MIR8024 microRNA precursor family: an 83-nucleotide RNA from Capsicum annuum. The family's consensus secondary structure was predicted with RNAalifold. Its family is annotated with RISC complex and miRNA-mediated post-transcriptional gene silencing in the Gene Ontology. Taxonomically the source falls in Capsicum (Eukaryota, Viridiplantae, Magnoliopsida, Mesangiospermae). Rfam 15.1 lists 661 matches to the family in 8 species.
RNA sequence: UUGAAGUUGAAUACUUCAACUUGCAGACAUGAAAAAUUUGAAGAUUUCAACUUACAUACUUGGAAGAUUCAAGGAAUUCAAAU
Number, nucleotide and partner (000 for none) at each position: 001u081002u080003g079004a078005a077006g000007u072008u071009g070010a069011a068012u000013a000014c000015u064016u063017c062018a061019a000020c000021u000022u056023g055024c000025a053026g000027a000028c000029a000030u049031g048032a047033a046034a045035a000036a000037u000038u000039u000040g000041a000042a000043g000044a000045u034046u033047u032048c031049a030050a000051c000052u000053u025054a000055c023056a022057u000058a000059c000060u000061u018062g017063g016064a015065a000066g000067a000068u011069u010070c009071a008072a007073g000074g000075a000076a000077u005078u004079c003080a002081a001082a000083u000